[Rfam]
Shown here is a 117-nucleotide sequence from Pelotomaculum schinkii, a member of the family "Molybdenum/Tungsten riboswitch aptamer (Moco RNA motif)".
The base pairs follow the family's consensus structure, which is taken from published work.
RNA sequence: CUAAUUUUAUAGCUCCGAUCUUGGCGGGCUAAUGCUAUGCUACGACUGCCAGGACGUCAGGUGUGCGGGGAAACCGGCAUGCCCUCCAGUGUGGAAAGGAGUACAGAAUUAUCUAUG
Numbered sequence: 001c002u003a004a005u006u007u008u009a010u011a012g013c014u015c016c017g018a019u020c021u022u023g024g025c026g027g028g029c030u031a032a033u034g035c036u037a038u039g040c041u042a043c044g045a046c047u048g049c050c051a052g053g054a055c056g057u058c059a060g061g062u063g064u065g066c067g068g069g070g071a072a073a074c075c076g077g078c079a080u081g082c083c084c085u086c087c088a089g090u091g092u093g094g095a096a097a098g099g100a101g102u103a104c105a106g107a108a109u110u111a112u113c114u115a116u117g
Stems, first nucleotide, its partner, number of pairs: 004110001006108001012102005019054009029044001034040002060083007068075002085094002
Dot-bracket structure: ...(.(.....(((((..(((((((((.(....((...))...).))))))))).....(((((((.((....)).))))))).((......))...))))).....).).......